[Rfam]
RNA sequence: CCUUUUGGAGAACAGGGAGCCACUCUGGGUUCACUUGUGAAUUUGGAUGGCGAGUGAACACAGCUGGUGGUAUCUCAGUUUUCUAAGGGGG
Numbered sequence: 001c002c003u004u005u006u007g008g009a010g011a012a013c014a015g016g017g018a019g020c021c022a023c024u025c026u027g028g029g030u031u032c033a034c035u036u037g038u039g040a041a042u043u044u045g046g047a048u049g050g051c052g053a054g055u056g057a058a059c060a061c062a063g064c065u066g067g068u069g070g071u072a073u074c075u076c077a078g079u080u081u082u083c084u085a086a087g088g089g090g091g
Stems, first nucleotide, its partner, number of pairs: 008082004015076001016074002019071002022068003025063003029059001031057002